[Rfam]
RNA sequence: UGGCUCUGUUUCCUGGGAGGUGGACUCAGCUCUCUCUACCUCCCCUCAACUGAGCCUACAGAACAGGGGCUGGCUCUCUGGUGUGGGAGAGGUAUUUAAGAAAGGAGCCUCACCCGGGCUGUCUCAGCCUCACAUUU
Numbered sequence: 001u002g003g004c005u006c007u008g009u010u011u012c013c014u015g016g017g018a019g020g021u022g023g024a025c026u027c028a029g030c031u032c033u034c035u036c037u038a039c040c041u042c043c044c045c046u047c048a049a050c051u052g053a054g055c056c057u058a059c060a061g062a063a064c065a066g067g068g069g070c071u072g073g074c075u076c077u078c079u080g081g082u083g084u085g086g087g088a089g090a091g092g093u094a095u096u097u098a099a100g101a102a103a104g105g106a107g108c109c110u111c112a113c114c115c116g117g118g119c120u121g122u123c124u125c126a127g128c129c130u131c132a133c134a135u136u137u
Stems, first nucleotide, its partner, number of pairs: 002056005015044010066131005072125002075118003085110003
RNA: Small Cajal body specific RNA 21